[Rfam]
RNA: Betaproteobacteria toxic small RNA
RNA sequence: UGUCUCCUCCAACUCUCCUUGAAUUGGAUUUAAGCCCGCUCCUUGAGCGGGCUUUUUUUU
Numbered sequence: 001u002g003u004c005u006c007c008u009c010c011a012a013c014u015c016u017c018c019u020u021g022a023a024u025u026g027g028a029u030u031u032a033a034g035c036c037c038g039c040u041c042c043u044u045g046a047g048c049g050g051g052c053u054u055u056u057u058u059u060u
Stems, first nucleotide, its partner, number of pairs: 008028005014022002033053008